RNA sequence: CGUUGAAGAUGGGUCCUUCGGCUGAACGAACUCGCAGAUUGAUGUGGUGUUUUAUCACCUCUCUUCUCUGUAUAUGAGAUGCAGAGUUAAAUGAUGCCACGAUAUUU
Number, nucleotide and partner (000 for none) at each position: 001c000002g000003u000004u000005g000006a000007a000008g000009a000010u000011g000012g000013g000014u000015c000016c000017u000018u000019c000020g000021g000022c000023u000024g000025a000026a000027c000028g000029a000030a000031c000032u000033c000034g000035c000036a000037g000038a000039u000040u000041g000042a000043u101044g100045u099046g098047g097048u096049g095050u000051u000052u000053u000054a000055u000056c000057a088058c000059c086060u085061c084062u083063c000064u000065u079066c078067u077068c076069u000070g000071u000072a000073u000074a000075u000076g068077a067078g066079a065080u000081g000082c000083a062084g061085a060086g059087u000088u057089a000090a000091a000092u000093g000094a000095u049096g048097c047098c046099a045100c044101g043102a000103u000104a000105u000106u000107u000
The family of this 107-nucleotide RNA from Ceratodon purpureus is "Small nucleolar RNA snoR97". Pairs were carried over by alignment from the consensus structure, which was predicted with WAR. Lineage of the source: Eukaryota > Viridiplantae > Streptophyta > Bryophytina > Ceratodon. The literature on the family includes a 2002 paper in Curr Biol by Marker et al., "Experimental RNomics: identification of 140 candidates for small non-messenger RNAs in the plant Arabidopsis thaliana".